[Rfam]
RNA sequence: GAGUGCUUACAGCUCUUUUUUUAAUUUGUCCAGCAGGUCUUCCGGUUUUUACCGGAAGCCCCCC
Numbered sequence: 001g002a003g004u005g006c007u008u009a010c011a012g013c014u015c016u017u018u019u020u021u022u023a024a025u026u027u028g029u030c031c032a033g034c035a036g037g038u039c040u041u042c043c044g045g046u047u048u049u050u051a052c053c054g055g056a057a058g059c060c061c062c063c064c
Stems, first nucleotide, its partner, number of pairs: 036061002039058008

U7 small nuclear RNA: a 64-nucleotide RNA sequence from Myotis myotis. The organism belongs to Myotis, within Eukaryota. The family has 49 seed sequences and 10,439 matches in Rfam 15.1. On this family, see Spycher et al., Nucleic Acids Res 1994: "3' end processing of mouse histone pre-mRNA: evidence for additional base-pairing between U7 snRNA and pre-mRNA".